[Rfam]
The family of this 75-nucleotide sequence from Limibacillus halophilus is "Makes More Granules Regulator RNA (mmgR)".
The literature on the family includes a 2016 paper in FEMS Microbiol Lett by Ceizel Borella et al., "Expression of the Sinorhizobium meliloti small RNA gene mmgR is controlled by the nitrogen source".
From the family's description: SuhB later renamed mmgR (makes more granules regulator) was a putative non-coding RNA found multiple times in the Agrobacterium tumefaciens genome and related alpha-proteobacteria.
RNA sequence: CCGUAACGCACUUCUUGAGCGUUUCCUCCCUAAACUCGGGCCGCGCCUUUGGGUGCGGCCCUUUUUUUAUCCGAG
Numbered sequence: 001c002c003g004u005a006a007c008g009c010a011c012u013u014c015u016u017g018a019g020c021g022u023u024u025c026c027u028c029c030c031u032a033a034a035c036u037c038g039g040g041c042c043g044c045g046c047c048u049u050u051g052g053g054u055g056c057g058g059c060c061c062u063u064u065u066u067u068u069a070u071c072c073g074a075g
Stems, first nucleotide, its partner, number of pairs: 008020002011017001039060009
Dot-bracket structure: .......((.(.....).))..................(((((((((....)))))))))...............

It is annotated as a small RNA.